[Rfam]
RNA sequence: UUCCGAUGAAGAAUUCGACCUUAUAGGAAGUGCCGUAUGACACUAAACAACCAGCGAUUU
Number, nucleotide and partner (000 for none) at each position: 001u000002u000003c000004c000005g000006a000007u000008g000009a000010a000011g000012a000013a000014u054015u053016c000017g000018a000019c000020c000021u000022u000023a000024u000025a000026g000027g000028a000029a044030g043031u042032g041033c000034c000035g000036u000037a000038u000039g000040a000041c032042a031043c030044u029045a000046a000047a000048c000049a000050a000051c000052c000053a015054g014055c000056g000057a000058u000059u000060u000
Source information:
The record is a 60-nucleotide sequence from Zostera marina, which matches "Small nucleolar RNA U49" in Rfam. The family is grouped with related families in Rfam's "SNORD49 clan". It is annotated as a C/D-box small nucleolar RNA. The organism belongs to Zostera, within Eukaryota. For this family Rfam cites "Multiple snoRNA gene clusters from Arabidopsis" (Brown et al., RNA, 2001). Gene Ontology terms of the family: RNA processing and nucleolus. The family has 5 seed sequences and 340 matches in Rfam 15.1.